skipping-rope RNA: a 124-nucleotide sequence. Rfam classes the family as a small RNA.
RNA sequence: AUCAGAAGAAGUAGAAACAUGCAGUCUACACACUUGCCGGAUUCAUUAAAUCUUCGGAUUUCGAGGCGAGUCUAAAAAAAGCUUAACCGCUAAGAGAUGUGGGAAAGUCACCCCACCUUCUGAU
Numbered sequence: 001a002u003c004a005g006a007a008g009a010a011g012u013a014g015a016a017a018c019a020u021g022c023a024g025u026c027u028a029c030a031c032a033c034u035u036g037c038c039g040g041a042u043u044c045a046u047u048a049a050a051u052c053u054u055c056g057g058a059u060u061u062c063g064a065g066g067c068g069a070g071u072c073u074a075a076a077a078a079a080a081g082c083u084u085a086a087c088c089g090c091u092a093a094g095a096g097a098u099g100u101g102g103g104a105a106a107g108u109c110a111c112c113c114c115a116c117c118u119u120c121u122g123a124u
Stems, first nucleotide, its partner, number of pairs: 001124008011029005021108002031094001032071007099116005